The family of this 86-nucleotide RNA from Hordeum vulgare is "mir-877 microRNA precursor family". On this family, see Berezikov et al., Genome Res 2006: "Many novel mammalian microRNA candidates identified by extensive cloning and RAKE analysis". Rfam 15.1 lists 186 matches to the family in 115 species. The organism belongs to Hordeum vulgare, within Eukaryota. The match comes from Rfam's covariance-model search (48 bits). The base pairs follow the family's consensus structure, which was predicted with RNAalifold.
[Rfam]
RNA sequence: GAAGAGGAGAAGAAGGAGGGAAGAAGAAGGAGAAUAAGGAGGGCUCCUUCUCCUCCUUCUCCUUCUUCUCUUCUUCUUCUUCUCCU
Numbered sequence: 001g002a003a004g005a006g007g008a009g010a011a012g013a014a015g016g017a018g019g020g021a022a023g024a025a026g027a028a029g030g031a032g033a034a035u036a037a038g039g040a041g042g043g044c045u046c047c048u049u050c051u052c053c054u055c056c057u058u059c060u061c062c063u064u065c066u067u068c069u070c071u072u073c074u075u076c077u078u079c080u081u082c083u084c085c086u
Base pairs, nucleotide, nucleotide: 004082005081006080007079008078009077012076013075015073017071018070019069020068021067022066023065024064025063026062028060036058037057038056039055040054041053042052043050